c-di-AMP riboswitch aptamer (ydaO/yuaA leader): a 136-nucleotide RNA from Paenibacillus lutimineralis.
RNA sequence: ACGAAAUCAUGGCCGAAUUCCCUUAACGGGGAACGGGGGAACCACUUUGGGUGAAUUGAUCUCGCUAGAGAGGGAUCAUAGGGAACCUUCAACCGAAUCCGUAAGCUAACCUCGUAGGCAAUCGGAAGGAGUAUUU
Number, nucleotide and partner (000 for none) at each position: 001a000002c000003g000004a000005a000006a000007u000008c000009a000010u000011g000012g119013c118014c117015g000016a000017a000018u032019u031020c030021c000022c000023u000024u000025a000026a000027c000028g000029g000030g020031g019032a018033a115034c114035g113036g112037g111038g110039g000040a000041a000042c000043c000044a000045c000046u000047u000048u000049g100050g099051g098052u000053g000054a000055a000056u000057u078058g077059a076060u075061c074062u073063c072064g000065c000066u000067a000068g000069a000070g000071a000072g063073g062074g061075a060076u059077c058078a057079u000080a000081g094082g093083g000084a000085a000086c000087c000088u000089u000090c000091a000092a000093c082094c081095g000096a000097a000098u051099c050100c049101g000102u000103a000104a000105g000106c000107u000108a000109a000110c038111c037112u036113c035114g034115u033116a000117g014118g013119c012120a000121a000122u000123c000124g000125g000126a000127a000128g000129g000130a000131g000132u000133a000134u000135u000136u000

Gene Ontology terms of the family: cyclic-di-AMP binding and regulation of gene expression. The match comes from Rfam's covariance-model search (72 bits).